[Rfam]
RNA sequence: GAGCCUUUAUCCAGAGCAGAAAGGGACUCUAAAGGGUUAUAUUUUAAUAAGGCAGCAUUUAUCUGCUUUGAAGUAAGAGAAUGACUGGAGU
Numbered sequence: 001g002a003g004c005c006u007u008u009a010u011c012c013a014g015a016g017c018a019g020a021a022a023g024g025g026a027c028u029c030u031a032a033a034g035g036g037u038u039a040u041a042u043u044u045u046a047a048u049a050a051g052g053c054a055g056c057a058u059u060u061a062u063c064u065g066c067u068u069u070g071a072a073g074u075a076a077g078a079g080a081a082u083g084a085c086u087g088g089a090g091u
Stems, first nucleotide, its partner, number of pairs: 001029003004025005010020002053087003056083005062078003
This 91-nucleotide sequence belongs to the Rfam family "pan motif". It is annotated as a cis-regulatory element. A search with the family's covariance model found it, with a score of 40 bits.